[Rfam]
RNA sequence: CUACUGCUAUGCGGGAGAGACCGUCGACCGGUGAGGGCCGGGACGCGGCGCCGAAGGAGCAAACCCUCCCCGGGAAACUCUCAGGCAAAGGUACCGCUAGCUCAGG
Numbered sequence: 001c002u003a004c005u006g007c008u009a010u011g012c013g014g015g016a017g018a019g020a021c022c023g024u025c026g027a028c029c030g031g032u033g034a035g036g037g038c039c040g041g042g043a044c045g046c047g048g049c050g051c052c053g054a055a056g057g058a059g060c061a062a063a064c065c066c067u068c069c070c071c072g073g074g075a076a077a078c079u080c081u082c083a084g085g086c087a088a089a090g091g092u093a094c095c096g097c098u099a100g101c102u103c104a105g106g
Base pairs, nucleotide, nucleotide: 006101007100008099009098011097012096013095014094021048022047023046024045050086051085052084053082054081057080058079059078064072
Dot-bracket structure: .....((((.((((......((((....................)))).(((((..(((....(.......).....))))).))).......)))))))).....
The record is a 106-nucleotide RNA sequence from Rothia terrae, which matches "Glycine riboswitch aptamer" in Rfam. The pairing is the family consensus, mapped onto this sequence. Taxonomically the source falls in Rothia (Bacteria, Actinomycetota, Micrococcales, Micrococcaceae). Rfam describes the family as follows. This family represents the bacterial glycine riboswitch.